SAH (S-adenosyl-L-homocysteine) riboswitch aptamer: an 80-nucleotide RNA from Simplicispira sp. 125. The match comes from Rfam's covariance-model search (65 bits). The family's consensus secondary structure is taken from published work.
RNA sequence: CAUUCCAAGGAGCGUUGCAGCAGUCCCGCGCGGACUGUCAGGCUUGGAAUGCCAGGCCCCCGCAACGACGCUCACCUGUU
Number, nucleotide and partner (000 for none) at each position: 001c000002a050003u049004u048005c047006c046007a045008a044009g000010g000011a000012g000013c000014g000015u000016u000017g000018c000019a000020g000021c037022a036023g035024u034025c033026c032027c000028g000029c000030g000031c000032g026033g025034a024035c023036u022037g021038u000039c000040a000041g000042g000043c000044u008045u007046g006047g005048a004049a003050u002051g000052c000053c000054a000055g000056g000057c000058c000059c000060c000061c000062g000063c000064a000065a000066c000067g000068a000069c000070g000071c000072u000073c000074a000075c000076c000077u000078g000079u000080u000